[Rfam]
RNA sequence: AGGCAGCCUUCUUGCCACGAUUUCUUAAUGGCAUGAAAGGUGUUAAACUGCUCGUACAUAAAAUUCUUUUGCUCUUCAGACUUGCAGAAAUUAAUUUGAAGCUGGUCUAGUAAGCUCAAGUACAUU
Numbered sequence: 001a002g003g004c005a006g007c008c009u010u011c012u013u014g015c016c017a018c019g020a021u022u023u024c025u026u027a028a029u030g031g032c033a034u035g036a037a038a039g040g041u042g043u044u045a046a047a048c049u050g051c052u053c054g055u056a057c058a059u060a061a062a063a064u065u066c067u068u069u070u071g072c073u074c075u076u077c078a079g080a081c082u083u084g085c086a087g088a089a090a091u092u093a094a095u096u097u098g099a100a101g102c103u104g105g106u107c108u109a110g111u112a113a114g115c116u117c118a119a120g121u122a123c124a125u126u
Stems, first nucleotide, its partner, number of pairs: 002044004007040002009037003013033005066120003071115003078108005084102002090095001
Dot-bracket structure: .((((.(((((.(((((...........))))).))).)))))).....................(((..(((....(((((.((....(....).....)).)))))....)))..)))......

Rfam assigns this 126-nucleotide RNA from Phaseolus vulgaris to the family "Small nucleolar RNA snoR77". Taxonomically the source falls in Phaseolus (Eukaryota, Streptophytina, Tracheophyta, Fabaceae). It is annotated as an H/ACA-box small nucleolar RNA.